[Rfam]
RNA sequence: GCAUUCUUAGCUCAGUUGGAUAGAGCAACAACCUUCUAAGUUGAAGGUCACAGGUUCAAAUCCUGUAGAAUGCG
Numbered sequence: 001g002c003a004u005u006c007u008u009a010g011c012u013c014a015g016u017u018g019g020a021u022a023g024a025g026c027a028a029c030a031a032c033c034u035u036c037u038a039a040g041u042u043g044a045a046g047g048u049c050a051c052a053g054g055u056u057c058a059a060a061u062c063c064u065g066u067a068g069a070a071u072g073c074g
Stems, first nucleotide, its partner, number of pairs: 001073007010026004029043004050066005
Background: Rfam assigns this 74-nucleotide RNA to the family "tRNA". The sequence is in the family's curated seed alignment. Rfam links the family to the GO term triplet codon-amino acid adaptor activity. It is annotated as a transfer RNA.